[Rfam]
RNA sequence: ACUAUGGAGAGUACAAGAACCUAUGAGUAGAUACAAUAUAUUGAAAAUAUACUCGUUGAAAUAGUAA
Numbered sequence: 001a002c003u004a005u006g007g008a009g010a011g012u013a014c015a016a017g018a019a020c021c022u023a024u025g026a027g028u029a030g031a032u033a034c035a036a037u038a039u040a041u042u043g044a045a046a047a048u049a050u051a052c053u054c055g056u057u058g059a060a061a062u063a064g065u066a067a
Stems, first nucleotide, its partner, number of pairs: 001065005009054005022049003030042003

A member of the RNA family "RAGATH-18 RNA", 67 nucleotides long. The base pairs follow the family's consensus structure, which is taken from published work. Actinobacteria, Firmicutes, Fusobacteria, Thermotogae (1 example).